[Rfam]
About this RNA
A member of the RNA family "Purine riboswitch aptamer" from Halalkalibacter akibai, 103 nucleotides long.
RNA sequence: AUCGAAAAACGAAUAAGACCUCAUAUAAUUUUGGGAAUAUGGUCCAUAAGUUUCUACCCGAUUGCCGUAAAAAAAUCGGACUAUGAGGGAAGUGUUACGUGGA
Numbered sequence: 001a002u003c004g005a006a007a008a009a010c011g012a013a014u015a016a017g018a019c020c021u022c023a024u025a026u027a028a029u030u031u032u033g034g035g036a037a038u039a040u041g042g043u044c045c046a047u048a049a050g051u052u053u054c055u056a057c058c059c060g061a062u063u064g065c066c067g068u069a070a071a072a073a074a075a076u077c078g079g080a081c082u083a084u085g086a087g088g089g090a091a092g093u094g095u096u097a098c099g100u101g102g103a
Stems, first nucleotide, its partner, number of pairs: 019088007029049002032046004058079006

Its family is annotated with purine nucleobase biosynthetic process in the Gene Ontology.